[Rfam]
RNA sequence: CCAAAGGCUCUUUUAAGAGCCACCCACUUUUUUCGGCUAAAGAGCU
Numbered sequence: 001c002c003a004a005a006g007g008c009u010c011u012u013u014u015a016a017g018a019g020c021c022a023c024c025c026a027c028u029u030u031u032u033u034c035g036g037c038u039a040a041a042g043a044g045c046u
Base pairs, nucleotide, nucleotide: 006021007020008019009018010017011016

A member of the RNA family "Histone 3' UTR stem-loop" from Eurypyga helias, 46 nucleotides long. On this family, see Williams and Marzluff, Nucleic Acids Res 1995: "The sequence of the stem and flanking sequences at the 3' end of histone mRNA are critical determinants for the binding of the stem-loop binding protein". The family's RNA type in Rfam is cis-regulatory element.